[Rfam]
RNA sequence: CUCGGACUGCUGUGUUGGUGACUGCCUUUCACAGUUUCUGAUCUGACUCCCUCUUCGACGUGGGUGGUCUGUCGCGACGGUGACGUACACCGGCCUCGUUGCCGGAAACGAAGCCCCGCUUUGACUGCUCCUCUGGUACUACCAGGUCGAACACUGGGGCAAGACGGCACAGCGGUUCACCC
Numbered sequence: 001c002u003c004g005g006a007c008u009g010c011u012g013u014g015u016u017g018g019u020g021a022c023u024g025c026c027u028u029u030c031a032c033a034g035u036u037u038c039u040g041a042u043c044u045g046a047c048u049c050c051c052u053c054u055u056c057g058a059c060g061u062g063g064g065u066g067g068u069c070u071g072u073c074g075c076g077a078c079g080g081u082g083a084c085g086u087a088c089a090c091c092g093g094c095c096u097c098g099u100u101g102c103c104g105g106a107a108a109c110g111a112a113g114c115c116c117c118g119c120u121u122u123g124a125c126u127g128c129u130c131c132u133c134u135g136g137u138a139c140u141a142c143c144a145g146g147u148c149g150a151a152c153a154c155u156g157g158g159g160c161a162a163g164a165c166g167g168c169a170c171a172g173c174g175g176u177u178c179a180c181c182c
Base pairs, nucleotide, nucleotide: 004178005177006176007175008174009173010172011171012170013169014168015167018165019164034154035153037151039149040148041147042146043145044144062130063129064128066126067125068124069123071121074119075118076117079114085109086108090105091104092103093102094101
Shown here is a 182-nucleotide sequence from Synechococcus sp. WH 5701, a member of the family "6S / SsrS RNA". The sequence is in the family's curated seed alignment. E. coli 6S RNA was the first non coding RNA to be sequenced, but its function was unknown until recently. The family's consensus secondary structure is taken from published work. Rfam classes the family as a non-coding RNA gene. NCBI's taxonomy places the organism under Bacteria, Bacillati, Synechococcales, Synechococcaceae, Synechococcus.